[Rfam]
RNA sequence: AAAUAGCUCGGGCAAAGCAACCGAAAGGUUGUGGCGCAAAACUAGAGGGUCUAAGGGUGUUUAGCCUAUGACAGCCAGCUGCUCCC
Number, nucleotide and partner (000 for none) at each position: 001a000002a000003a000004u000005a000006g000007c000008u000009c000010g000011g000012g037013c036014a000015a000016a000017g032018c031019a030020a029021c028022c027023g000024a000025a000026a000027g022028g021029u020030u019031g018032u017033g000034g000035c000036g013037c012038a000039a000040a080041a000042c078043u077044a000045g000046a000047g076048g075049g072050u071051c070052u000053a000054a000055g000056g066057g065058u064059g000060u000061u000062u000063a000064g058065c057066c056067u000068a000069u000070g051071a050072c049073a000074g000075c048076c047077a043078g042079c000080u040081g000082c000083u000084c000085c000086c000

The record is an 86-nucleotide RNA from Desulfocucumis palustris, which matches "c-di-GMP-I riboswitch aptamer" in Rfam.
A search with the family's covariance model found it, with a score of 59 bits.